[Rfam]
RNA: Purine riboswitch aptamer
Organism: Brevibacillus sp. SYP-B805
RNA sequence: CCAUCAAUGGAUCUUAUCGCUCGUAUAAUCUCAGGGAUACGGCCUGAAAGUUUCUACCGCCCGACCGUAAAUCGGGCGACUACGAGGAGAAGACUGCGGAUG
Numbered sequence: 001c002c003a004u005c006a007a008u009g010g011a012u013c014u015u016a017u018c019g020c021u022c023g024u025a026u027a028a029u030c031u032c033a034g035g036g037a038u039a040c041g042g043c044c045u046g047a048a049a050g051u052u053u054c055u056a057c058c059g060c061c062c063g064a065c066c067g068u069a070a071a072u073c074g075g076g077c078g079a080c081u082a083c084g085a086g087g088a089g090a091a092g093a094c095u096g097c098g099g100a101u102g
Stems, first nucleotide, its partner, number of pairs: 020086006029049001031047005058078007